[Rfam]
RNA sequence: CACCAAAGCACCAAGUCAGGGCAUUCUUAAAACACAUUUUAAAUGUGUUGACCAUCAAUUAAGCUUGUCUGUUACGUCUUUGGAAGAAUAAUACUGGCCGCUCCUAAUUUUCUCGUUUUGAGUUAAUUUUGGAUAGAAUUAUAAUGAUUUUCUUCUUUAUAUUUCUUUUAGGCCAGCUGGGAACUUUUUGAGUUAAAGGUUUUCGUUUCAAUUAGUAUUGAAGUACAAAACAUUUGUAGUAAAGACCCCAACAAUC
Numbered sequence: 001c002a003c004c005a006a007a008g009c010a011c012c013a014a015g016u017c018a019g020g021g022c023a024u025u026c027u028u029a030a031a032a033c034a035c036a037u038u039u040u041a042a043a044u045g046u047g048u049u050g051a052c053c054a055u056c057a058a059u060u061a062a063g064c065u066u067g068u069c070u071g072u073u074a075c076g077u078c079u080u081u082g083g084a085a086g087a088a089u090a091a092u093a094c095u096g097g098c099c100g101c102u103c104c105u106a107a108u109u110u111u112c113u114c115g116u117u118u119u120g121a122g123u124u125a126a127u128u129u130u131g132g133a134u135a136g137a138a139u140u141a142u143a144a145u146g147a148u149u150u151u152c153u154u155c156u157u158u159a160u161a162u163u164u165c166u167u168u169u170a171g172g173c174c175a176g177c178u179g180g181g182a183a184c185u186u187u188u189u190g191a192g193u194u195a196a197a198g199g200u201u202u203u204c205g206u207u208u209c210a211a212u213u214a215g216u217a218u219u220g221a222a223g224u225a226c227a228a229a230a231c232a233u234u235u236g237u238a239g240u241a242a243a244g245a246c247c248c249c250a251a252c253a254a255u256c
Stems, first nucleotide, its partner, number of pairs: 003083005019070005026063003032048005094176006102138001104136003108126002112122003143163001144154001146152002178250004184244003194236004201228002205224007